[Rfam]
Nucleotides: 085
Stems, first nucleotide, its partner, number of pairs: 008079001010077007018069001020067008029058001034053003039048001
Number, partner (000 for none) and nucleotide at each position: 001000u002000u003000a004000a005000c006000u007000c008079a009000c010077a011076u012075u013074u014073g015072u016071a017000u018069g019000a020067a021066g022065u023064u024063g025062g026061a027060a028000c029058a030000g031000c032000u033000u034053c035052c036051u037000a038000u039048c040000g041000u042000u043000u044000g045000c046000c047000g048039g049000u050000a051036g052035g053034g054000g055000c056000g057000c058029u059000u060027u061026u062025c063024c064023a065022a066021c067020u068000c069018c070000a071016u072015a073014c074013a075012a076011a077010u078000u079008u080000g081000a082000g083000u084000u085000u